RNA sequence: UGCAUUAACCGAUGUAAGUCGCUUUGGAUAAAAGUGUCUGCUAAAUGCCGAUUC
Numbered sequence: 001u002g003c004a005u006u007a008a009c010c011g012a013u014g015u016a017a018g019u020c021g022c023u024u025u026g027g028a029u030a031a032a033a034g035u036g037u038c039u040g041c042u043a044a045a046u047g048c049c050g051a052u053u054c
Stems, first nucleotide, its partner, number of pairs: 013043001014041003020036006
The family of this 54-nucleotide sequence from Gadus morhua is "UnaL2 LINE 3' element". The family's consensus secondary structure is taken from published work. Rfam's curators write: The eel long interspersed element (LINE) UnaL2 and its partner short interspersed element (SINE) share a conserved 3' tail containing a stem-loop that is critical for their retrotransposition. It scores 59 bits against the family's covariance model.